[Rfam]
The record is a 111-nucleotide RNA from Caenorhabditis brenneri, which matches "SL2 RNA" in Rfam. The family's consensus secondary structure is taken from published work.
RNA sequence: GGUUUUUACCCAGUAUAACCAAGGUUAGCUGUCGUUUCGAACUCUCGAAAGAGUGUGUCGAAUAAAUAAAAUUUUUGGAAACGCUUCUUCGGGGUGAUCCGGAGAGGCAAA
Numbered sequence: 001g002g003u004u005u006u007u008a009c010c011c012a013g014u015a016u017a018a019c020c021a022a023g024g025u026u027a028g029c030u031g032u033c034g035u036u037u038c039g040a041a042c043u044c045u046c047g048a049a050a051g052a053g054u055g056u057g058u059c060g061a062a063u064a065a066a067u068a069a070a071a072u073u074u075u076u077g078g079a080a081a082c083g084c085u086u087c088u089u090c091g092g093g094g095u096g097a098u099c100c101g102g103a104g105a106g107g108c109a110a111a
Stems, first nucleotide, its partner, number of pairs: 008035001010031001013029002017026003038060003042055001044053003085109001087107004093100002
Lineage of the source: Eukaryota > Opisthokonta > Eumetazoa > Protostomia > Caenorhabditis. Rfam describes the family as follows. This family represents SL2 RNA. SL2 RNA is involved in trans splicing in lower eukaryotes. Trans-splicing is a form of RNA processing. The acquisition of a spliced leader from a SL RNA is a intra-molecular reaction which precisely joins exons derived from separately transcribed RNAs.